Rfam assigns this 102-nucleotide RNA from Kalanchoe fedtschenkoi to the family "Small nucleolar RNA Z279/snoR105/snoR108". About the family: This family includes the plant snoRNAs known as Z279, snoR105 and snoR108. The literature on the family includes a 2002 paper in Curr Biol by Marker et al., "Experimental RNomics: identification of 140 candidates for small non-messenger RNAs in the plant Arabidopsis thaliana".
RNA sequence: GGGAUGUGAUGAGUGGUCAGUUCUCGCAUUUCUGUUGCGAAAGGGUGUUCGCCCCAAGCCUGUUACGACAGAUUGGGCACCCCAUCAAACCUACCUGAUCCC
Numbered sequence: 001g002g003g004a005u006g007u008g009a010u011g012a013g014u015g016g017u018c019a020g021u022u023c024u025c026g027c028a029u030u031u032c033u034g035u036u037g038c039g040a041a042a043g044g045g046u047g048u049u050c051g052c053c054c055c056a057a058g059c060c061u062g063u064u065a066c067g068a069c070a071g072a073u074u075g076g077g078c079a080c081c082c083c084a085u086c087a088a089a090c091c092u093a094c095c096u097g098a099u100c101c102c
Stems, first nucleotide, its partner, number of pairs: 001102004014093003024040004043082007060075001062073002